[Rfam]
RNA: Bacterial RNase P class A
Organism: bacterium HR30
RNA sequence: GGAGAGGGCCGGGCGGCCGCUCGGGUGAGAAAUGACCCGGGAGGAAAGUCCGGACUCCAUAGGGCAAGGUGGCCGCUAACGGCGGCCUCGAGCGAUCGAGGGAAAGUGCCACAGAAAAGAGACGACCAGCAAGCCAAGCUUGCCGGAAACGGUGAAAACGGUGCGUCAGCGCACCAGCAUUCGUGGUGACACGGGUGCUCGGCAAACCCCACCUGGAGCAAGACCAAAGAGAGGGCGCGUGGCCCGCGCAGGCCCUCCGGUGCGUCGCUCGAGGCGGUUGGCAACAACCGUCCCAGAGGAAUGGCCGCCACCCAGCCCGAACGGGCGGGAACAGAAUCCGGCUUACAGGCCCUCUCCGUUU
Numbered sequence: 001g002g003a004g005a006g007g008g009c010c011g012g013g014c015g016g017c018c019g020c021u022c023g024g025g026u027g028a029g030a031a032a033u034g035a036c037c038c039g040g041g042a043g044g045a046a047a048g049u050c051c052g053g054a055c056u057c058c059a060u061a062g063g064g065c066a067a068g069g070u071g072g073c074c075g076c077u078a079a080c081g082g083c084g085g086c087c088u089c090g091a092g093c094g095a096u097c098g099a100g101g102g103a104a105a106g107u108g109c110c111a112c113a114g115a116a117a118a119g120a121g122a123c124g125a126c127c128a129g130c131a132a133g134c135c136a137a138g139c140u141u142g143c144c145g146g147a148a149a150c151g152g153u154g155a156a157a158a159c160g161g162u163g164c165g166u167c168a169g170c171g172c173a174c175c176a177g178c179a180u181u182c183g184u185g186g187u188g189a190c191a192c193g194g195g196u197g198c199u200c201g202g203c204a205a206a207c208c209c210c211a212c213c214u215g216g217a218g219c220a221a222g223a224c225c226a227a228a229g230a231g232a233g234g235g236c237g238c239g240u241g242g243c244c245c246g247c248g249c250a251g252g253c254c255c256u257c258c259g260g261u262g263c264g265u266c267g268c269u270c271g272a273g274g275c276g277g278u279u280g281g282c283a284a285c286a287a288c289c290g291u292c293c294c295a296g297a298g299g300a301a302u303g304g305c306c307g308c309c310a311c312c313c314a315g316c317c318c319g320a321a322c323g324g325g326c327g328g329g330a331a332c333a334g335a336a337u338c339c340g341g342c343u344u345a346c347a348g349g350c351c352c353u354c355u356c357c358g359u360u361u
Stems, first nucleotide, its partner, number of pairs: 001357010011346001012309007020041007028033001046344003050341005055218004062245004067214005072086005087100005101209002106207002108203003123151002126146002129143005160175006177198009222266003231257006237249004273292008